[Rfam]
RNA: Small nucleolar RNA SNORA26
RNA sequence: UUGCCCACUUGAGGCUGUUUAUGUCUUAAGUGGCCAUUAUUGAGGGGUAAAUAAUGUCCUCUCUAAAAACCUGGGUCAGGGGUCUCACCCCUGCCUCUGGACCUGUCGGGAGGAACAAAC
Numbered sequence: 001u002u003g004c005c006c007a008c009u010u011g012a013g014g015c016u017g018u019u020u021a022u023g024u025c026u027u028a029a030g031u032g033g034c035c036a037u038u039a040u041u042g043a044g045g046g047g048u049a050a051a052u053a054a055u056g057u058c059c060u061c062u063c064u065a066a067a068a069a070c071c072u073g074g075g076u077c078a079g080g081g082g083u084c085u086c087a088c089c090c091c092u093g094c095c096u097c098u099g100g101a102c103c104u105g106u107c108g109g110g111a112g113g114a115a116c117a118a119a120c
Base pairs, nucleotide, nucleotide: 002049003048004047005046006045009042014038016036017035019030057114059112060111061110062109063108070100071099073097074096075095078092079091080090082089
Dot-bracket structure: .(((((..(....(.((.(..........)....)).)...)..))))).......(.(((((......((.(((..(((.(......))))..))).)).......))))).)......